[Rfam]
RNA sequence: AAUUUAGCCGCGAAAUUGCUUCGUAUAAUCCCAAUGAUAUGGUUUGGGAGUUUCUACCAAGAACCUUAAAUUCUUGAUUAUGAAGUCUGUAACUUUAUGG
Numbered sequence: 001a002a003u004u005u006a007g008c009c010g011c012g013a014a015a016u017u018g019c020u021u022c023g024u025a026u027a028a029u030c031c032c033a034a035u036g037a038u039a040u041g042g043u044u045u046g047g048g049a050g051u052u053u054c055u056a057c058c059a060a061g062a063a064c065c066u067u068a069a070a071u072u073c074u075u076g077a078u079u080a081u082g083a084a085g086u087c088u089g090u091a092a093c094u095u096u097a098u099g100g
Stems, first nucleotide, its partner, number of pairs: 018086008029049006058076006
The family of this 100-nucleotide RNA from Marinomonas sp. MED121 is "Purine riboswitch aptamer".